This 46-nucleotide sequence from Desulfonema ishimotonii belongs to the Rfam family "Acido-Lenti-1 RNA".

RNA sequence: CCCGGCAAUGAAUUGCCGGGCUAUUGCCGUCCGUCCCUCCGGGACU
Numbered sequence: 001c002c003c004g005g006c007a008a009u010g011a012a013u014u015g016c017c018g019g020g021c022u023a024u025u026g027c028c029g030u031c032c033g034u035c036c037c038u039c040c041g042g043g044a045c046u
Stems, first nucleotide, its partner, number of pairs: 001020008033045005